[Rfam]
RNA sequence: UGUAGUUCUCGGGGCGGGGUGAAAUUCCCCACCGGCGGUGAUUGUUGUAGCUGAAGUUCAGUGGCAACACAGCCCGCGAGCGCCUGCCCAACUGGGCAGGGACAAGCAGAUCCGGUGUGAUUCCGGAGCCGACGGUCAUAGUCCGGAUACGAGAGAACCGGU
Numbered sequence: 001u002g003u004a005g006u007u008c009u010c011g012g013g014g015c016g017g018g019g020u021g022a023a024a025u026u027c028c029c030c031a032c033c034g035g036c037g038g039u040g041a042u043u044g045u046u047g048u049a050g051c052u053g054a055a056g057u058u059c060a061g062u063g064g065c066a067a068c069a070c071a072g073c074c075c076g077c078g079a080g081c082g083c084c085u086g087c088c089c090a091a092c093u094g095g096g097c098a099g100g101g102a103c104a105a106g107c108a109g110a111u112c113c114g115g116u117g118u119g120a121u122u123c124c125g126g127a128g129c130c131g132a133c134g135g136u137c138a139u140a141g142u143c144c145g146g147a148u149a150c151g152a153g154a155g156a157a158c159c160g161g162u
Stems, first nucleotide, its partner, number of pairs: 003160001005158006017029003031142002033131002035077004072129002080107002111127005133145003
About this RNA: This 162-nucleotide RNA sequence from Gordonia effusa belongs to the Rfam family "FMN riboswitch aptamer (RFN element)". Rfam 15.1 lists 6,230 matches to the family in 5,120 species. NCBI's taxonomy places the organism under Bacteria, Bacillati, Gordoniaceae, Gordonia, Gordonia effusa.